RNA sequence: AAUAGCUUUCAGGGCAGGGUGAGAUUCCCGACCGGCGGUAGAGUCCGCGAGCUGCGUUGCAGUUGACUUGGUGAAAUUCCAAGACCGACAGUAAAGUCUGGAUGAAAGAAAGUGAUU
Dot-bracket structure: ..(.((((((......(((.......))).[[((((((....[[))))..(((.......)))...(((((.......)))))]])).(((....]]))).......)))))).)..

FMN riboswitch aptamer (RFN element): a 117-nucleotide RNA sequence from Andreesenia angusta. The RFN element is a highly conserved domain that is found frequently in the 5'-untranslated regions of prokaryotic mRNAs that encode for flavin mononucleotide (FMN) biosynthesis and transport proteins. The match comes from Rfam's covariance-model search (118 bits).